Shown here is an 82-nucleotide RNA sequence from Hordeum vulgare, a member of the family "Small nucleolar RNA R12". By type it is a C/D-box small nucleolar RNA. From the family's description: snoR12 is a C/D box small nucleolar RNA, which acts as a methylation guide for 25S ribosomal RNA in plants. snoR12 has been alternatively named snoZ44 in Arabidopsis and snoZ131 in rice. The match comes from Rfam's covariance-model search (51 bits). Its family is annotated with RNA processing and nucleolus in the Gene Ontology.
RNA sequence: GCGAGGGUGAAGAAGAAAAUCAUUCGGAUUCCCAUUGAUUUGUAAAAAAACAUGAAAAAAUCGGUUGCCGGUUUCCUCUUGU
Numbered sequence: 001g002c003g004a005g006g007g008u009g010a011a012g013a014a015g016a017a018a019a020u021c022a023u024u025c026g027g028a029u030u031c032c033c034a035u036u037g038a039u040u041u042g043u044a045a046a047a048a049a050a051c052a053u054g055a056a057a058a059a060a061u062c063g064g065u066u067g068c069c070g071g072u073u074u075c076c077u078c079u080u081g082u
Base pairs, nucleotide, nucleotide: 001082002081003080004079005078006077007076